[Rfam]
RNA sequence: GCAUGGGUUUGGAUUUAUGGUGGGCCUGUUCCCCUGGGCCUCUCAUAGUGCCCAGGUCAAAGGAAACUGUGGCCUUCAACUGUUGCCUGGCCUCACGUCCAUAGGCUGCUGGCACUGAAGUGGGUUGCACAGAG
Numbered sequence: 001g002c003a004u005g006g007g008u009u010u011g012g013a014u015u016u017a018u019g020g021u022g023g024g025c026c027u028g029u030u031c032c033c034c035u036g037g038g039c040c041u042c043u044c045a046u047a048g049u050g051c052c053c054a055g056g057u058c059a060a061a062g063g064a065a066a067c068u069g070u071g072g073c074c075u076u077c078a079a080c081u082g083u084u085g086c087c088u089g090g091c092c093u094c095a096c097g098u099c100c101a102u103a104g105g106c107u108g109c110u111g112g113c114a115c116u117g118a119a120g121u122g123g124g125u126u127g128c129a130c131a132g133a134g
Stems, first nucleotide, its partner, number of pairs: 001057002004054005015048006022041003025037002070127006081117002086112002088108006
RNA: Small nucleolar RNA SNORA42/SNORA80 family
Organism: Otolemur garnettii